[Rfam]
RNA sequence: AUCGCAGCACGCUGACAAUCGCUCAGUACCUGUUCUUUUCAGUCCAAUCGCUGAAACUCGACCACCGUCGAUUUACGAUUAUCAUCAUUUUUCGAACCCGCGAGGUGCUCACUGAGCUUGCUCACAGCAGUCUUGCACCGUGUCCUUGGCCUUGCACUGCCGCCUUGUGACGCGAAGAACG
Numbered sequence: 001a002u003c004g005c006a007g008c009a010c011g012c013u014g015a016c017a018a019u020c021g022c023u024c025a026g027u028a029c030c031u032g033u034u035c036u037u038u039u040c041a042g043u044c045c046a047a048u049c050g051c052u053g054a055a056a057c058u059c060g061a062c063c064a065c066c067g068u069c070g071a072u073u074u075a076c077g078a079u080u081a082u083c084a085u086c087a088u089u090u091u092u093c094g095a096a097c098c099c100g101c102g103a104g105g106u107g108c109u110c111a112c113u114g115a116g117c118u119u120g121c122u123c124a125c126a127g128c129a130g131u132c133u134u135g136c137a138c139c140g141u142g143u144c145c146u147u148g149g150c151c152u153u154g155c156a157c158u159g160c161c162g163c164c165u166u167g168u169g170a171c172g173c174g175a176a177g178a179a180c181g
Stems, first nucleotide, its partner, number of pairs: 002015003037056006058071005100136007113124004139174006145167001148164003